[Rfam]
RNA: c-di-GMP-I riboswitch aptamer
RNA sequence: AAUCCAAGUGGGUAAACCUAUAGAAAUAUAGGGGCACAAAGCUAGAAGCCUUAGGCAGAUGCAAAGGUAGUUCGGCUGCAACA
Numbered sequence: 001a002a003u004c005c006a007a008g009u010g011g012g013u014a015a016a017c018c019u020a021u022a023g024a025a026a027u028a029u030a031g032g033g034g035c036a037c038a039a040a041g042c043u044a045g046a047a048g049c050c051u052u053a054g055g056c057a058g059a060u061g062c063a064a065a066g067g068u069a070g071u072u073c074g075g076c077u078g079c080a081a082c083a
Base pairs, nucleotide, nucleotide: 012037013036017032018031019030020029021028022027040077041076042075043074045073046072047071048068049067050066055062056061